The family of this 170-nucleotide RNA sequence from Sphingobium sp. YG1 is "Manganese Mn2+ riboswitch aptamer (yybP-ykoY)". NCBI's taxonomy places the organism under Bacteria, Pseudomonadati, Sphingomonadales, Sphingobiaceae, Sphingobium. Gene Ontology term of the family: manganese ion binding. For this family Rfam cites "The ubiquitous yybP-ykoY riboswitch is a manganese-responsive regulatory element" (Dambach et al., Mol Cell, 2015). About the family: This RNA was originally discovered in E. coli during a large scale screen and was named SraF. The family was later found to exist upstream of related families of protein genes in many bacteria, including the the yybP and ykoK genes in B. subtilis.
RNA sequence: GCACUCGUCAUCUGGGGAGUAGCCAGCCGUUCCGCGUCAAGCGGACGGGCCAUGCGUCAACAUAUUUGGUCGAGAGGCCAUGGCGUAUGGGAUGCGGAUACGAAAGCAUCGCGCGUAAAAGUGGGCACCGGUUUUGCGCUCGCAGCGAUGCUUCAAUGAUGUUCCGCAUC
Numbered sequence: 001g002c003a004c005u006c007g008u009c010a011u012c013u014g015g016g017g018a019g020u021a022g023c024c025a026g027c028c029g030u031u032c033c034g035c036g037u038c039a040a041g042c043g044g045a046c047g048g049g050c051c052a053u054g055c056g057u058c059a060a061c062a063u064a065u066u067u068g069g070u071c072g073a074g075a076g077g078c079c080a081u082g083g084c085g086u087a088u089g090g091g092a093u094g095c096g097g098a099u100a101c102g103a104a105a106g107c108a109u110c111g112c113g114c115g116u117a118a119a120a121g122u123g124g125g126c127a128c129c130g131g132u133u134u135u136g137c138g139c140u141c142g143c144a145g146c147g148a149u150g151c152u153u154c155a156a157u158g159a160u161g162u163u164c165c166g167c168a169u170c
Stems, first nucleotide, its partner, number of pairs: 027048006050090010067080005091170007